[Rfam]
RNA sequence: UGACAGCGAUGAGGCAGAAGGUUGCUUAUGUGUCCUCAGCCAUAUGGGGCACCAAUGAGGUGGUUUCUGCUGAGCAUGUCCAUAAAAUUGGGCGACAA
Numbered sequence: 001u002g003a004c005a006g007c008g009a010u011g012a013g014g015c016a017g018a019a020g021g022u023u024g025c026u027u028a029u030g031u032g033u034c035c036u037c038a039g040c041c042a043u044a045u046g047g048g049g050c051a052c053c054a055a056u057g058a059g060g061u062g063g064u065u066u067c068u069g070c071u072g073a074g075c076a077u078g079u080c081c082a083u084a085a086a087a088u089u090g091g092g093c094g095a096c097a098a
Stems, first nucleotide, its partner, number of pairs: 014070003019066003025059005077097004083090001
The record is a 98-nucleotide RNA from Alicyclobacillus sp. SO9, which matches "S10-Clostridia ribosomal protein leader" in Rfam. Lineage of the source: Bacteria > Bacillati > Bacilli > Caryophanales > Alicyclobacillus. Rfam classes the family as a cis-regulatory leader. On this family, see Eckert and Weinberg, BMC Microbiol 2020: "Discovery of 20 novel ribosomal leader candidates in bacteria and archaea".